[Rfam]
RNA sequence: UCUUGUGCUAUCGGUAAAUACUAUGGUAACUCUUUAGGCAUUCCUUCGAACAAGAUGCAAGAACAGACAACAAUGACAGCCCUUCUACGAGUGAUUAGCUUGGUCGUGAUUAGCGUGGUGGUGAUUAUUAUCCCACCGUGCGGGGCUGCACUUGGACGAGGAAAGGCUUAGAAAUCAAGCCUUAACGAACUAAGACCCCCGCACCGAAAGGUCCGGGGUUUUUUUUGACCUUAAAAACAGAAAUGAGGAGCAGGAAAUGAACAAUAGCAUAAAACUCUGUUUCUCAGGAUUUAU
Numbered sequence: 001u002c003u004u005g006u007g008c009u010a011u012c013g014g015u016a017a018a019u020a021c022u023a024u025g026g027u028a029a030c031u032c033u034u035u036a037g038g039c040a041u042u043c044c045u046u047c048g049a050a051c052a053a054g055a056u057g058c059a060a061g062a063a064c065a066g067a068c069a070a071c072a073a074u075g076a077c078a079g080c081c082c083u084u085c086u087a088c089g090a091g092u093g094a095u096u097a098g099c100u101u102g103g104u105c106g107u108g109a110u111u112a113g114c115g116u117g118g119u120g121g122u123g124a125u126u127a128u129u130a131u132c133c134c135a136c137c138g139u140g141c142g143g144g145g146c147u148g149c150a151c152u153u154g155g156a157c158g159a160g161g162a163a164a165g166g167c168u169u170a171g172a173a174a175u176c177a178a179g180c181c182u183u184a185a186c187g188a189a190c191u192a193a194g195a196c197c198c199c200c201g202c203a204c205c206g207a208a209a210g211g212u213c214c215g216g217g218g219u220u221u222u223u224u225u226u227g228a229c230c231u232u233a234a235a236a237a238c239a240g241a242a243a244u245g246a247g248g249a250g251c252a253g254g255a256a257a258u259g260a261a262c263a264a265u266a267g268c269a270u271a272a273a274a275c276u277c278u279g280u281u282u283c284u285c286a287g288g289a290u291u292u293a294u
Stems, first nucleotide, its partner, number of pairs: 005030001006028006035070001037068001039066001041063003045059001046055002081248003086243001089238001095234003098230001100228004105115003117137005123132003138157002141154004160186001165182002168179002192222008201213001203212003249281006257270003
Dot-bracket structure: ....(((((((...........)))))).)....(.(.(.(((.(((......))...).)))..).).)..........(((..(..(.....((((.((((.(((.....))).(((((.(((....))))))))((.((((......)))).))..(....((.((........)).))...).....((((((((.(.(((....)))).))))))))..)))).).)))...)....)..)))((((((..(((........))).....)))))).............